RNA sequence: CCUGCGGCGGAGUGGUAUUUCCGAAAAUGGGCUGUUGCGCGGCGUGACCAUGCUGCGCGAGGACGACCUAACGUCCUCGAUAUGAGCCGACCGGCUCCCUGAGCGCCACGUCCCCAGAAGGGACGUGGCGCUUGGGUC
Numbered sequence: 001c002c003u004g005c006g007g008c009g010g011a012g013u014g015g016u017a018u019u020u021c022c023g024a025a026a027a028u029g030g031g032c033u034g035u036u037g038c039g040c041g042g043c044g045u046g047a048c049c050a051u052g053c054u055g056c057g058c059g060a061g062g063a064c065g066a067c068c069u070a071a072c073g074u075c076c077u078c079g080a081u082a083u084g085a086g087c088c089g090a091c092c093g094g095c096u097c098c099c100u101g102a103g104c105g106c107c108a109c110g111u112c113c114c115c116a117g118a119a120g121g122g123a124c125g126u127g128g129c130g131c132u133u134g135g136g137u138c
Base pairs, nucleotide, nucleotide: 008023009022010021011020012019034081035080036079037058038057039056040055041054042053043052044051045050059078060077061076062075063074064073065072084097085096086095087094088093098135099134101133102132103131104130105129106128107127108126109125110124111123112122113121114120
Overview
This 138-nucleotide RNA from Burkholderia ambifaria belongs to the Rfam family "sbcD RNA". The base pairs follow the family's consensus structure, which is taken from published work. The organism belongs to Burkholderia ambifaria, within Bacteria. It is annotated as a small RNA.